[Rfam]
RNA: Small nucleolar RNA Z105
RNA sequence: UUGGCGUGAUGAGGAAAAUGUGUUUAUUUCUCAGAUUAACUCAUGAUUGGAAUUAAAACAUACCCUCCUACUCAUUCUGA
Numbered sequence: 001u002u003g004g005c006g007u008g009a010u011g012a013g014g015a016a017a018a019u020g021u022g023u024u025u026a027u028u029u030c031u032c033a034g035a036u037u038a039a040c041u042c043a044u045g046a047u048u049g050g051a052a053u054u055a056a057a058a059c060a061u062a063c064c065c066u067c068c069u070a071c072u073c074a075u076u077c078u079g080a
Base pairs, nucleotide, nucleotide: 006075007074008073009072028056029055032050